The record is a 390-nucleotide RNA from Flaviaestuariibacter flavus, which matches "Group I catalytic intron" in Rfam. Its family is annotated with Group I intron splicing in the Gene Ontology. The family has 12 seed sequences and 5,602 matches in Rfam 15.1.
[Rfam]
RNA sequence: AGAUGUACGUUUUCUAUCGAACCGAACAUGGGAAGCAAUCAUAAGCGAAGCUCAAAAAUGCAGAUUACUUUGUUCCAAUUGCCAUUCAGAGUUACAUCACCCUGAACUGGCUCUUGAUAAAGUUCAAAGAAUGAUCAGCGGUGCCGCCGGCACGAAAUUGCCGGAUGGGAUAGGGGUUAAUUCAGGGAAGCCUUCCUUUUUGCAAACGCAGAAAGAUGGUAAUCCUGAGCCAAGCAGGACGAAUGGUUAGAAGAGUAGUCCUGAAGGUGCAGAGACUAGGAAGUGCGGAAACCAGCCAAUAAGCUUCCAAUAACGCCCCUCACCUGACUGCUCCGCAUUAAGCGGAAUAAAAGGUGGUGAGAUAGUCCAACUACUUCGCGAAAGCGGAGG
Numbered sequence: 001a002g003a004u005g006u007a008c009g010u011u012u013u014c015u016a017u018c019g020a021a022c023c024g025a026a027c028a029u030g031g032g033a034a035g036c037a038a039u040c041a042u043a044a045g046c047g048a049a050g051c052u053c054a055a056a057a058a059u060g061c062a063g064a065u066u067a068c069u070u071u072g073u074u075c076c077a078a079u080u081g082c083c084a085u086u087c088a089g090a091g092u093u094a095c096a097u098c099a100c101c102c103u104g105a106a107c108u109g110g111c112u113c114u115u116g117a118u119a120a121a122g123u124u125c126a127a128a129g130a131a132u133g134a135u136c137a138g139c140g141g142u143g144c145c146g147c148c149g150g151c152a153c154g155a156a157a158u159u160g161c162c163g164g165a166u167g168g169g170a171u172a173g174g175g176g177u178u179a180a181u182u183c184a185g186g187g188a189a190g191c192c193u194u195c196c197u198u199u200u201u202g203c204a205a206a207c208g209c210a211g212a213a214a215g216a217u218g219g220u221a222a223u224c225c226u227g228a229g230c231c232a233a234g235c236a237g238g239a240c241g242a243a244u245g246g247u248u249a250g251a252a253g254a255g256u257a258g259u260c261c262u263g264a265a266g267g268u269g270c271a272g273a274g275a276c277u278a279g280g281a282a283g284u285g286c287g288g289a290a291a292c293c294a295g296c297c298a299a300u301a302a303g304c305u306u307c308c309a310a311u312a313a314c315g316c317c318c319c320u321c322a323c324c325u326g327a328c329u330g331c332u333c334c335g336c337a338u339u340a341a342g343c344g345g346a347a348u349a350a351a352a353g354g355u356g357g358u359g360a361g362a363u364a365g366u367c368c369a370a371c372u373a374c375u376u377c378g379c380g381a382a383a384g385c386g387g388a389g390g
Base pairs, nucleotide, nucleotide: 005027006026008024009023011021012020013019032040033039172320173319174318175317177315182228183227184226185225186224187223191219192218194216195215229268230267237260242256244254272368274367275366276365277364278363323354324353325352375388376387377386378385379384
Dot-bracket structure: ....((.((.(((.....))).)).))....((.....))...................................................................................................................................[[[[.[....((((((...((.((...................)).))...))))))((......(....(.(.........).)...)......))...(.(((((....................................].]]]]..(((..........................)))........))))))......(((((....)))))..